The record is a 91-nucleotide RNA from Natronobacillus azotifigens, which matches "c-di-GMP-I riboswitch aptamer" in Rfam. The base pairs follow the family's consensus structure, which is taken from published work. Lineage of the source: Bacteria > Bacillati > Caryophanales > Bacillaceae > Natronobacillus.
[Rfam]
RNA sequence: UAUGGAAAAAGGCAAAACUAUUGAAAAAUAGUGACGCAAAGUCACAGGUCUAAUGUAGAUUACAUUCUACAAUGAUGGCUGGACUACCCGA
Number, nucleotide and partner (000 for none) at each position: 001u000002a000003u000004g000005g000006a000007a000008a000009a000010a000011g000012g037013c036014a000015a000016a000017a032018c031019u030020a029021u028022u027023g000024a000025a000026a000027a022028a021029u020030a019031g018032u017033g000034a000035c000036g013037c012038a000039a000040a085041g084042u083043c082044a000045c081046a080047g079048g076049u075050c074051u000052a000053a000054u000055g070056u069057a068058g067059a000060u000061u000062a000063c000064a000065u000066u000067c058068u057069a056070c055071a000072a000073u000074g050075a049076u048077g000078g000079c047080u046081g045082g043083a042084c041085u040086a000087c000088c000089c000090g000091a000